[Rfam]
The family of this 161-nucleotide sequence from Quercus lobata is "U1 spliceosomal RNA". The match comes from Rfam's covariance-model search (107 bits). Its family is annotated with mRNA 5'-splice site recognition, pre-mRNA 5'-splice site binding and U1 snRNP in the Gene Ontology. The source organism's lineage runs through Eukaryota, Viridiplantae, eudicotyledons, Pentapetalae and Quercus. Rfam classes the family as a spliceosomal small nuclear RNA. From the family's description: U1 is a small nuclear RNA (snRNA) component of the spliceosome (involved in pre-mRNA splicing). Its 5' end forms complementary base pairs with the 5' splice junction, thus defining the 5' donor site of an intron. There are significant differences in sequence and secondary structure between metazoan and yeast U1 snRNAs, the latter being much longer (568 nucleotides as compared to 164 nucleotides in human).

RNA sequence: AUACUUACCUGGACGGGGUCAAUGGGUGGUCCAUAAGGCCCAUGUCCUAGGAUGGUAGCCUCCAUUGCACAUGAAGGAGGGGUGCCAGCCUAAGGUCUUCCCUAAUGGAAGAGCCUAUGUCAAUAUUUGUUGCACUGGGGGCUGUGCAAGCGCUGCCCGUG
Number, nucleotide and partner (000 for none) at each position: 001a000002u000003a000004c000005u000006u000007a000008c000009c000010u000011g000012g121013a120014c119015g118016g048017g047018g046019u000020c044021a043022a000023u042024g041025g040026g039027u038028g000029g000030u000031c000032c000033a000034u000035a000036a000037g000038g027039c026040c025041c024042a023043u021044g020045u000046c018047c017048u016049a091050g090051g089052a000053u088054g000055g085056u084057a083058g000059c081060c080061u079062c077063c076064a000065u000066u000067g000068c000069a000070c000071a000072u000073g000074a000075a000076g063077g062078a000079g061080g060081g059082g000083u057084g056085c055086c000087a000088g053089c051090c050091u049092a000093a116094g115095g114096u112097c111098u110099u000100c108101c107102c000103u000104a000105a000106u000107g101108g100109a000110a098111g097112a096113g000114c095115c094116u093117a000118u015119g014120u013121c012122a000123a000124u000125a000126u000127u000128u000129g000130u000131u000132g000133c000134a000135c000136u000137g160138g000139g158140g157141g156142c000143u000144g153145u152146g151147c000148a000149a000150g000151c146152g145153c144154u000155g000156c141157c140158c139159g000160u137161g000